[Rfam]
RNA sequence: GAUUGGCAGGAGUGGUCAAUUAGAUGUGCGAAGUGACCUUAUGAGUUGAGCCUUGAGGCCUAAUUGUGUUUGAUUUGCCAAUU
Numbered sequence: 001g002a003u004u005g006g007c008a009g010g011a012g013u014g015g016u017c018a019a020u021u022a023g024a025u026g027u028g029c030g031a032a033g034u035g036a037c038c039u040u041a042u043g044a045g046u047u048g049a050g051c052c053u054u055g056a057g058g059c060c061u062a063a064u065u066g067u068g069u070u071u072g073a074u075u076u077g078c079c080a081a082u083u
Base pairs, nucleotide, nucleotide: 001083002082003081004080005079006078007077008076009075010074
Background
The family of this 83-nucleotide RNA sequence from Zea mays is "Small nucleolar RNA Z266". NCBI's taxonomy places the organism under Eukaryota, Embryophyta, Liliopsida, Andropogonodae, Zea. The family has 11 seed sequences and 719 matches in Rfam 15.1. Rfam links the family to the GO terms nucleolus and RNA processing. The literature on the family includes a 2003 paper in Nucleic Acids Res by Chen et al., "The high diversity of snoRNAs in plants: identification and comparative study of 120 snoRNA genes from Oryza sativa". Pairs were carried over by alignment from the consensus structure, which was predicted with PFOLD.